[Rfam]
RNA sequence: AAUUAGUAUCAAGAGCAGAGUUAAGUCUCUCUCCAACCUGCCAACUCCGGUAAGGUGGAAAAAUUGAUGCGGCAUUCUGCAAUACAAGGAGAAAGA
Numbered sequence: 001a002a003u004u005a006g007u008a009u010c011a012a013g014a015g016c017a018g019a020g021u022u023a024a025g026u027c028u029c030u031c032u033c034c035a036a037c038c039u040g041c042c043a044a045c046u047c048c049g050g051u052a053a054g055g056u057g058g059a060a061a062a063a064u065u066g067a068u069g070c071g072g073c074a075u076u077c078u079g080c081a082a083u084a085c086a087a088g089g090a091g092a093a094a095g096a
Stems, first nucleotide, its partner, number of pairs: 006070005015031001017030004032059003037055003040051003045091004072080003
The record is a 96-nucleotide RNA sequence, which matches "SAM-I/IV (S-adenosyl methionine) riboswitch aptamer" in Rfam. Gene Ontology terms of the family: regulation of gene expression and S-adenosylmethionine metabolic process. The literature on the family includes a 2008 paper in RNA by Weinberg et al., "The aptamer core of SAM-IV riboswitches mimics the ligand-binding site of SAM-I riboswitches".